[Rfam]
RNA sequence: UGAGUAGUACAGAUGGUCGCGCCUAUAAGUGCCGAAAGGCCAUAGGUGAGGAAAGUCCGAGCUUCACAGGGCAGAGUGCCGGAUAACAUCCGGUGGAGGCGACUCUAAGGAAAGUGCAAUAGAAAUAUACCGCCGGGAAUUCCCGGUAAGGGUGGAAUGGUGGGGCAAGAGCCCACCGCCUGGAUGGUAACACCCAGGGCAUAUGUAAACCCCACUCGAAGUAAGACCGAAUAUUAAAGCGAUACGGCUGCCCGUCGUGCUUUAGGGUAGGUCGCGGUUCGCGAGAUACCUAGUAUCUCGAUGAUAUCUAGUAUCUCAAAGAUACUAAGGUAUCUUAGAGGUGCAAGCAUCUCUAAGGAAACUCAAAGUUUCUCAGAACGAGCCUCAUGGUAACAUGGGGCAAAGAUAGAUGACCAUUUGAUACAGAACUCGGCUUAUAGUACUGCUCAUGUA
Numbered sequence: 001u002g003a004g005u006a007g008u009a010c011a012g013a014u015g016g017u018c019g020c021g022c023c024u025a026u027a028a029g030u031g032c033c034g035a036a037a038g039g040c041c042a043u044a045g046g047u048g049a050g051g052a053a054a055g056u057c058c059g060a061g062c063u064u065c066a067c068a069g070g071g072c073a074g075a076g077u078g079c080c081g082g083a084u085a086a087c088a089u090c091c092g093g094u095g096g097a098g099g100c101g102a103c104u105c106u107a108a109g110g111a112a113a114g115u116g117c118a119a120u121a122g123a124a125a126u127a128u129a130c131c132g133c134c135g136g137g138a139a140u141u142c143c144c145g146g147u148a149a150g151g152g153u154g155g156a157a158u159g160g161u162g163g164g165g166c167a168a169g170a171g172c173c174c175a176c177c178g179c180c181u182g183g184a185u186g187g188u189a190a191c192a193c194c195c196a197g198g199g200c201a202u203a204u205g206u207a208a209a210c211c212c213c214a215c216u217c218g219a220a221g222u223a224a225g226a227c228c229g230a231a232u233a234u235u236a237a238a239g240c241g242a243u244a245c246g247g248c249u250g251c252c253c254g255u256c257g258u259g260c261u262u263u264a265g266g267g268u269a270g271g272u273c274g275c276g277g278u279u280c281g282c283g284a285g286a287u288a289c290c291u292a293g294u295a296u297c298u299c300g301a302u303g304a305u306a307u308c309u310a311g312u313a314u315c316u317c318a319a320a321g322a323u324a325c326u327a328a329g330g331u332a333u334c335u336u337a338g339a340g341g342u343g344c345a346a347g348c349a350u351c352u353c354u355a356a357g358g359a360a361a362c363u364c365a366a367a368g369u370u371u372c373u374c375a376g377a378a379c380g381a382g383c384c385u386c387a388u389g390g391u392a393a394c395a396u397g398g399g400g401c402a403a404a405g406a407u408a409g410a411u412g413a414c415c416a417u418u419u420g421a422u423a424c425a426g427a428a429c430u431c432g433g434c435u436u437a438u439a440g441u442a443c444u445g446c447u448c449a450u451g452u453a
Stems, first nucleotide, its partner, number of pairs: 001449010011438001012418007020048007053436003057433005062221004069253004074217005079093005094108001095106004109212002114210002116206003130151002132147006159177006178200001179198005185192002225273004235264006244258005
Annotation
A member of the RNA family "Bacterial RNase P class A" from Anaerocolumna jejuensis, 453 nucleotides long. About the family: Ribonuclease P (RNase P) is a ubiquitous endoribonuclease, found in archaea, bacteria and eukarya as well as chloroplasts and mitochondria.